[Rfam]
RNA sequence: CAAAGUUAUUUGAAAGAACUCAGACAAAUGCCAAGUGAAAGAGGAUAGAAUUAAAAUUACAAAUAAAGAUCCGUGCGAAGUUUUUAGAGUAGGGUAGUCAAACUUCCAAAAGGACGUAAGUAUAAAAUGAAGUUCGAAUCUUUUAGAGACUAGGACUUAAAAAAUCUUAGAACUGUAUAUUCUUUAGGAA
Numbered sequence: 001c002a003a004a005g006u007u008a009u010u011u012g013a014a015a016g017a018a019c020u021c022a023g024a025c026a027a028a029u030g031c032c033a034a035g036u037g038a039a040a041g042a043g044g045a046u047a048g049a050a051u052u053a054a055a056a057u058u059a060c061a062a063a064u065a066a067a068g069a070u071c072c073g074u075g076c077g078a079a080g081u082u083u084u085u086a087g088a089g090u091a092g093g094g095u096a097g098u099c100a101a102a103c104u105u106c107c108a109a110a111a112g113g114a115c116g117u118a119a120g121u122a123u124a125a126a127a128u129g130a131a132g133u134u135c136g137a138a139u140c141u142u143u144u145a146g147a148g149a150c151u152a153g154g155a156c157u158u159a160a161a162a163a164a165u166c167u168u169a170g171a172a173c174u175g176u177a178u179a180u181u182c183u184u185u186a187g188g189a190a
Stems, first nucleotide, its partner, number of pairs: 001043001006038007079151010092141004098137002101134006114121002166188006
RNA: Leptospira sRNA 30_255